[Rfam]
RNA sequence: UGGCGGUGCCGCGACUGGCGUCGACGUGGAACCGACCACGAGGGAGCGGCAGCGCAACCGCGCGUGGUGCCGUCCGCCUGGGCACCCGGG
Numbered sequence: 001u002g003g004c005g006g007u008g009c010c011g012c013g014a015c016u017g018g019c020g021u022c023g024a025c026g027u028g029g030a031a032c033c034g035a036c037c038a039c040g041a042g043g044g045a046g047c048g049g050c051a052g053c054g055c056a057a058c059c060g061c062g063c064g065u066g067g068u069g070c071c072g073u074c075c076g077c078c079u080g081g082g083c084a085c086c087c088g089g090g
Stems, first nucleotide, its partner, number of pairs: 003055003007051006015043002017078004026039004067085005